RNA sequence: UACAGAGCACAGCCGAGUCUUGCCGCCUCAGGGCGGUGGGAACGGGGGACCCAAACGGCCGAGGUCAGGCCGAUGGGGCGAAUCGCCGCUUCGAUGGUGGCGUAGCGCAGGCCUGCGCGAGUCCGACAGCUAACCCCGUAGGCGCGAGGCCGAAGGAGUU
Numbered sequence: 001u002a003c004a005g006a007g008c009a010c011a012g013c014c015g016a017g018u019c020u021u022g023c024c025g026c027c028u029c030a031g032g033g034c035g036g037u038g039g040g041a042a043c044g045g046g047g048g049a050c051c052c053a054a055a056c057g058g059c060c061g062a063g064g065u066c067a068g069g070c071c072g073a074u075g076g077g078g079c080g081a082a083u084c085g086c087c088g089c090u091u092c093g094a095u096g097g098u099g100g101c102g103u104a105g106c107g108c109a110g111g112c113c114u115g116c117g118c119g120a121g122u123c124c125g126a127c128a129g130c131u132a133a134c135c136c137c138g139u140a141g142g143c144g145c146g147a148g149g150c151c152g153a154a155g156g157a158g159u160u
Base pairs, nucleotide, nucleotide: 012143013142014141018041019040020039021038022037023036024035025034026033027032042139043138044137045136046135047134052075053074076124077123078122084102085101086100087099105118106117107116108115
Dot-bracket structure: ...........(((...((((((((((....))))))))))((((((....((....................))(((.....((((...........))))..((((......))))...))).........)))))).))).................